[Rfam]
The record is a 350-nucleotide RNA sequence from Blautia faecicola, which matches "Bacterial RNase P class A" in Rfam.

RNA sequence: UAAGUAGAAUAAAUGGUCGCGGCUGACAGAACCGAAAGGGGUCAGGUGAGGAAAGUCCGGGCUUCAAAGGGCAGGAUGCCGGAUAACGUCCGGUGGAGGUGACUCCAAGGCCAGUGCAACAGAAAUAAACCGCCAGGUUCGCCUGGUAAGGGUGGAAAGGCAGUGUAAGAGACUACCGCCUGUCUGGUGACAGAGAGGGCACAUGUAAACCCCAUCCGAAGCAAGACCGAACAAAAAACUAUGUGGCUGCCCGUCACGUUUUUAGGUAGGUCGCUGAAGCCUGCUGGCAACAGCAGGAUUAGAUAGAUGACCAUUCAAGACAUAACCCGGCUUAUCGUUCUGCUUACUUU
Numbered sequence: 001u002a003a004g005u006a007g008a009a010u011a012a013a014u015g016g017u018c019g020c021g022g023c024u025g026a027c028a029g030a031a032c033c034g035a036a037a038g039g040g041g042u043c044a045g046g047u048g049a050g051g052a053a054a055g056u057c058c059g060g061g062c063u064u065c066a067a068a069g070g071g072c073a074g075g076a077u078g079c080c081g082g083a084u085a086a087c088g089u090c091c092g093g094u095g096g097a098g099g100u101g102a103c104u105c106c107a108a109g110g111c112c113a114g115u116g117c118a119a120c121a122g123a124a125a126u127a128a129a130c131c132g133c134c135a136g137g138u139u140c141g142c143c144u145g146g147u148a149a150g151g152g153u154g155g156a157a158a159g160g161c162a163g164u165g166u167a168a169g170a171g172a173c174u175a176c177c178g179c180c181u182g183u184c185u186g187g188u189g190a191c192a193g194a195g196a197g198g199g200c201a202c203a204u205g206u207a208a209a210c211c212c213c214a215u216c217c218g219a220a221g222c223a224a225g226a227c228c229g230a231a232c233a234a235a236a237a238a239c240u241a242u243g244u245g246g247c248u249g250c251c252c253g254u255c256a257c258g259u260u261u262u263u264a265g266g267u268a269g270g271u272c273g274c275u276g277a278a279g280c281c282u283g284c285u286g287g288c289a290a291c292a293g294c295a296g297g298a299u300u301a302g303a304u305a306g307a308u309g310a311c312c313a314u315u316c317a318a319g320a321c322a323u324a325a326c327c328c329g330g331c332u333u334a335u336c337g338u339u340c341u342g343c344u345u346a347c348u349u350u
Stems, first nucleotide, its partner, number of pairs: 001346010011335001012315007020048002023045005053333003057330005062221004069252004074217005079093005094108001095106004109212002114210002116206003130151002132147006159177002162174003178200001179198003183194004225272004234263006243257005280297007
NCBI's taxonomy places the organism under Bacteria, Bacillota, Lachnospirales, Lachnospiraceae, Blautia. A search with the family's covariance model found it, with a score of 303 bits.